[Rfam]
RNA sequence: AAACCCCGCGCGGGAGAGUCCGUCACCGGCCAUCGUGACGGCGCCGAAGGAGCAAAUCCUCCCCGGAAUCUCUCAGGCACACGUACCGCGCGGACGAG
Numbered sequence: 001a002a003a004c005c006c007c008g009c010g011c012g013g014g015a016g017a018g019u020c021c022g023u024c025a026c027c028g029g030c031c032a033u034c035g036u037g038a039c040g041g042c043g044c045c046g047a048a049g050g051a052g053c054a055a056a057u058c059c060u061c062c063c064c065g066g067a068a069u070c071u072c073u074c075a076g077g078c079a080c081a082c083g084u085a086c087c088g089c090g091c092g093g094a095c096g097a098g
Stems, first nucleotide, its partner, number of pairs: 006093008020041007043078003046074002050072003057065001

Source information: Rfam assigns this 98-nucleotide RNA sequence from Streptomyces smaragdinus to the family "Glycine riboswitch aptamer". Lineage of the source: Bacteria > Bacillati > Kitasatosporales > Streptomycetaceae > Streptomyces. Its family is annotated with glycine biosynthetic process in the Gene Ontology. The match comes from Rfam's covariance-model search (69 bits). For this family Rfam cites "A glycine-dependent riboswitch that uses cooperative binding to control gene expression" (Mandal et al., Science, 2004). From the family's description: This family represents the bacterial glycine riboswitch.